Description:
ODC internal ribosome entry site (IRES): a 142-nucleotide sequence from Saimiri boliviensis.
RNA sequence: AUUUCCACUGCUGCUCUGAGGGUACAAGAGGCAGGAUUUGGAAUUCCUGGAGAAGUGUCUUUGUGAGAAGCUGGAAGUAUUUCUUUCAAUUCCAUCUCUUAGUUUUCCAUUCUGUUGUGUUUAAGAGGAACAGCACGAAACC
Numbered sequence: 001a002u003u004u005c006c007a008c009u010g011c012u013g014c015u016c017u018g019a020g021g022g023u024a025c026a027a028g029a030g031g032c033a034g035g036a037u038u039u040g041g042a043a044u045u046c047c048u049g050g051a052g053a054a055g056u057g058u059c060u061u062u063g064u065g066a067g068a069a070g071c072u073g074g075a076a077g078u079a080u081u082u083c084u085u086u087c088a089a090u091u092c093c094a095u096c097u098c099u100u101a102g103u104u105u106u107c108c109a110u111u112c113u114g115u116u117g118u119g120u121u122u123a124a125g126a127g128g129a130a131c132a133g134c135a136c137g138a139a140a141c142c
Stems, first nucleotide, its partner, number of pairs: 006074001010071003014067003017063008033048004080140004085135001090130004

Background:
Rfam links the family to the GO term ribosome binding. NCBI's taxonomy places the organism under Eukaryota, Opisthokonta, Deuterostomia, Primates, Saimiri boliviensis. The base pairs follow the family's consensus structure, which was predicted with mfold.